[Rfam]
Rfam assigns this 76-nucleotide sequence from Saimiri boliviensis to the family "mir-320 microRNA precursor family". Pairs were carried over by alignment from the consensus structure, which was predicted with RNAalifold. A reference for the family is Berezikov et al. (2006), "Many novel mammalian microRNA candidates identified by extensive cloning and RAKE analysis", Genome Res. The family has 38 seed sequences and 659 matches in Rfam 15.1. NCBI's taxonomy places the organism under Eukaryota, Craniata, Amniota, Saimiriinae, Saimiri boliviensis.
RNA sequence: ACAAAGAAAGACCUUCUCUUCCCAGUUCUUCCCAGAGUCGAGAAAAGCUAGGUUGAGAGGGCGGAAAAAAAGAAGA
Numbered sequence: 001a002c003a004a005a006g007a008a009a010g011a012c013c014u015u016c017u018c019u020u021c022c023c024a025g026u027u028c029u030u031c032c033c034a035g036a037g038u039c040g041a042g043a044a045a046a047g048c049u050a051g052g053u054u055g056a057g058a059g060g061g062c063g064g065a066a067a068a069a070a071a072g073a074a075g076a
Base pairs, nucleotide, nucleotide: 014059015058016057017056018055021052022051024049025048029044030043031042033040
Dot-bracket structure: .............(((((..((.((...(((.(......).)))...)).))..))))).................